[Rfam]
RNA sequence: GGGGUCGACUGGUUUUGACAGCGAGAUUAAUAGAAUGGUAAGCACGUCGAGCGCUGGGAUAUAGCUCGUAAAUAUCAUAUUUCACUUUUUUAAACGGCGAGAAUAACUACGCCCUAGCUGCAUAAUCCGAAUUAUAGUAGGAUAAUGCCUCGGCUCACAAGGUGAGCAAGCAGGAAGUCUCCCAAUAGCCUUGGUUUGCGGCGAUUGAUUUUGAGACUUCGUAAAAGUAAACCUAGAAAUUGUAGGAUCUUGAUAUGAUUUUGAAACUUAAUCGAGAAUAAGCGAUACGUUGGCGGUUUUUGGUCUUUCAUAUCGUCGAAAACUAAACAAAAACUAAACGUGUAGAAAGCUAUUUUGUUACUUGUUUGGACGAGGGUUCGAAUCCCUCCGACUCCACAA
Numbered sequence: 001g002g003g004g005u006c007g008a009c010u011g012g013u014u015u016u017g018a019c020a021g022c023g024a025g026a027u028u029a030a031u032a033g034a035a036u037g038g039u040a041a042g043c044a045c046g047u048c049g050a051g052c053g054c055u056g057g058g059a060u061a062u063a064g065c066u067c068g069u070a071a072a073u074a075u076c077a078u079a080u081u082u083c084a085c086u087u088u089u090u091u092a093a094a095c096g097g098c099g100a101g102a103a104u105a106a107c108u109a110c111g112c113c114c115u116a117g118c119u120g121c122a123u124a125a126u127c128c129g130a131a132u133u134a135u136a137g138u139a140g141g142a143u144a145a146u147g148c149c150u151c152g153g154c155u156c157a158c159a160a161g162g163u164g165a166g167c168a169a170g171c172a173g174g175a176a177g178u179c180u181c182c183c184a185a186u187a188g189c190c191u192u193g194g195u196u197u198g199c200g201g202c203g204a205u206u207g208a209u210u211u212u213g214a215g216a217c218u219u220c221g222u223a224a225a226a227g228u229a230a231a232c233c234u235a236g237a238a239a240u241u242g243u244a245g246g247a248u249c250u251u252g253a254u255a256u257g258a259u260u261u262u263g264a265a266a267c268u269u270a271a272u273c274g275a276g277a278a279u280a281a282g283c284g285a286u287a288c289g290u291u292g293g294c295g296g297u298u299u300u301u302g303g304u305c306u307u308u309c310a311u312a313u314c315g316u317c318g319a320a321a322a323c324u325a326a327a328c329a330a331a332a333a334c335u336a337a338a339c340g341u342g343u344a345g346a347a348a349g350c351u352a353u354u355u356u357g358u359u360a361c362u363u364g365u366u367u368g369g370a371c372g373a374g375g376g377u378u379c380g381a382a383u384c385c386c387u388c389c390g391a392c393u394c395c396a397c398a399a
Base pairs, nucleotide, nucleotide: 001395002394003393004392005391006390007389019368020367021366024363025362027360031357032356033355034354035353036352037351038350039349043342044341045340046339047338048068049067050066051065052064055084056083057082058081059080060079061078122143123142126139176218177217178216179215180214181213183207184206185205186204188202189201190200194232195231196230197229198228236262237261238260239259240258241257242256243255244254248277249276250275251274252273282316283315284314285313286312287311289309292305293304294303296334297333298332299331300330301329302328372388373387374386375385376384
This 399-nucleotide RNA sequence from Aquimarina mytili belongs to the Rfam family "transfer-messenger RNA". Lineage of the source: Bacteria > Flavobacteriia > Flavobacteriales > Flavobacteriaceae > Aquimarina. The family's consensus secondary structure is taken from published work.